[Rfam]
Notes: Lysine riboswitch aptamer: a 177-nucleotide RNA sequence from Shewanella cyperi. The organism belongs to Shewanella, within Bacteria. It scores 92 bits against the family's covariance model. Rfam describes the family as follows. Riboswitches are metabolite binding domains within certain messenger RNAs that serve as precision sensors for their corresponding targets.
RNA sequence: AGGCACAGAAGAGGAGCGUCAACUAGGUAGCCGUUUCGAGGAGCAUCCACUCCGAUGACGAAAGGUGAGGGAGAUUGACGCCGAGGUAACGCCAUGUGGAAUUGCAUGCCGUUAUCGGUCGGCCAGGCUGAAUCCUGUCGAUUGUCACCUGUUUUUUGGUGGAGAGCUUCUGGUGAC
Numbered sequence: 001a002g003g004c005a006c007a008g009a010a011g012a013g014g015a016g017c018g019u020c021a022a023c024u025a026g027g028u029a030g031c032c033g034u035u036u037c038g039a040g041g042a043g044c045a046u047c048c049a050c051u052c053c054g055a056u057g058a059c060g061a062a063a064g065g066u067g068a069g070g071g072a073g074a075u076u077g078a079c080g081c082c083g084a085g086g087u088a089a090c091g092c093c094a095u096g097u098g099g100a101a102u103u104g105c106a107u108g109c110c111g112u113u114a115u116c117g118g119u120c121g122g123c124c125a126g127g128c129u130g131a132a133u134c135c136u137g138u139c140g141a142u143u144g145u146c147a148c149c150u151g152u153u154u155u156u157u158g159g160u161g162g163a164g165a166g167c168u169u170c171u172g173g174u175g176a177c
Stems, first nucleotide, its partner, number of pairs: 006172006016081007024073001030066003034062003085116007093108004117143006124137004145162005151156001